[Rfam]
RNA sequence: UGAUACCAAGGGUUACAAGCCAAAAGUCUACGCAAGCUUGCUUGCAGGAGACUUUUAGGAUUAGGAACCCGUACCACAUGAGCAAGUAGCCAUUUUCAAAGAAAAUGAGCGGAUUGUGAAUGUGGUUCAGAUUGAGAGAGUGCGAAGCACGGAACAAUCUGGAAGGUAUCA
Numbered sequence: 001u002g003a004u005a006c007c008a009a010g011g012g013u014u015a016c017a018a019g020c021c022a023a024a025a026g027u028c029u030a031c032g033c034a035a036g037c038u039u040g041c042u043u044g045c046a047g048g049a050g051a052c053u054u055u056u057a058g059g060a061u062u063a064g065g066a067a068c069c070c071g072u073a074c075c076a077c078a079u080g081a082g083c084a085a086g087u088a089g090c091c092a093u094u095u096u097c098a099a100a101g102a103a104a105a106u107g108a109g110c111g112g113a114u115u116g117u118g119a120a121u122g123u124g125g126u127u128c129a130g131a132u133u134g135a136g137a138g139a140g141u142g143c144g145a146a147g148c149a150c151g152g153a154a155c156a157a158u159c160u161g162g163a164a165g166g167u168a169u170c171a
Base pairs, nucleotide, nucleotide: 001171002170003169004168005167006166007165011069012068013067014066017062018061020059021058022056023055024054025053026052027051028050029049031047032045033044034043035042036041073126074125075124076123077122078121079120082117083116084115085114089110090109091107092106093105094104095103096102097101129160130159131158132157133156134155140150141149142148143147
Dot-bracket structure: (((((((...((((..((.((((((((((.((((((....))))).).)))))))).)).))...))))...(((((((..((((...(((((((((...))))))).))...))))..)))))))..((((((.....((((...))))....))))))....)))))))
A member of the RNA family "Clostridiales-1 RNA" from Firmicutes bacterium AF22-6AC, 171 nucleotides long. NCBI's taxonomy places the organism under Bacteria, Bacillati, Bacillota.